[Rfam]
RNA sequence: CAUGGAAAGACGAUGAUGCUUAACUUCCAAGCACAUAUCUGAAUUGUACUGUGGACACUCUUAAGACUGAGUCUUUUCAUG
Numbered sequence: 001c002a003u004g005g006a007a008a009g010a011c012g013a014u015g016a017u018g019c020u021u022a023a024c025u026u027c028c029a030a031g032c033a034c035a036u037a038u039c040u041g042a043a044u045u046g047u048a049c050u051g052u053g054g055a056c057a058c059u060c061u062u063a064a065g066a067c068u069g070a071g072u073c074u075u076u077u078c079a080u081g
Stems, first nucleotide, its partner, number of pairs: 001081006008074004
Description: Shown here is an 81-nucleotide RNA sequence from Mauremys mutica, a member of the family "Small nucleolar RNA SNORD121A". Lineage of the source: Eukaryota > Craniata > Teleostomi > Geoemydidae > Mauremys.